Annotation
A member of the RNA family "Small nucleolar RNA SNORD116" from Balaenoptera physalus, 90 nucleotides long. Rfam 15.1 lists 3,260 matches to the family in 170 species.

[Rfam]
RNA sequence: GGGUCAAUGAUGACUCCCAUAAUUACAUUCCUUGGAAGUCUGAAAGAUGAGUGAGCAAUCCCUACCGUCUCCACAUCGGGACUGAGGUCC
Numbered sequence: 001g002g003g004u005c006a007a008u009g010a011u012g013a014c015u016c017c018c019a020u021a022a023u024u025a026c027a028u029u030c031c032u033u034g035g036a037a038g039u040c041u042g043a044a045a046g047a048u049g050a051g052u053g054a055g056c057a058a059u060c061c062c063u064a065c066c067g068u069c070u071c072c073a074c075a076u077c078g079g080g081a082c083u084g085a086g087g088u089c090c
Base pairs, nucleotide, nucleotide: 001090002089003088004087005086026053027052028051029050030049032045
Rfam links the family to the GO terms nucleolus and RNA processing. It scores 73 bits against the family's covariance model. By type it is a C/D-box small nucleolar RNA. NCBI's taxonomy places the organism under Eukaryota, Teleostomi, Sarcopterygii, Boreoeutheria, Balaenoptera. Pairs were carried over by alignment from the consensus structure, which was predicted with PFOLD.